[Rfam]
RNA sequence: AAGCAGUGAUGAAUAUUGCGCCAUUGUGGCAGAAUUAGGGUUCACCACUGUUGCCUGACUUUUCCCGGUUGAUACUGGAGCGCACCUGAGCUU
Numbered sequence: 001a002a003g004c005a006g007u008g009a010u011g012a013a014u015a016u017u018g019c020g021c022c023a024u025u026g027u028g029g030c031a032g033a034a035u036u037a038g039g040g041u042u043c044a045c046c047a048c049u050g051u052u053g054c055c056u057g058a059c060u061u062u063u064c065c066c067g068g069u070u071g072a073u074a075c076u077g078g079a080g081c082g083c084a085c086c087u088g089a090g091c092u093u
Base pairs, nucleotide, nucleotide: 001093002092003091004090
RNA: small nucleolar RNA snoR114
Organism: Carnegiea gigantea